[Rfam]
RNA sequence: UUCUGGGUCCGGGCCCCUCUGGCAGCGACGGUCGCUGCGAUGUCGGAUUCUUCAC
Numbered sequence: 001u002u003c004u005g006g007g008u009c010c011g012g013g014c015c016c017c018u019c020u021g022g023c024a025g026c027g028a029c030g031g032u033c034g035c036u037g038c039g040a041u042g043u044c045g046g047a048u049u050c051u052u053c054a055c
Stems, first nucleotide, its partner, number of pairs: 006049007022038007
Record summary:
This 55-nucleotide sequence from Oleomonas cavernae belongs to the Rfam family "terC RNA". By type it is a cis-regulatory element. The family has 129 seed sequences and 1,112 matches in Rfam 15.1. The organism belongs to Oleomonas, within Bacteria.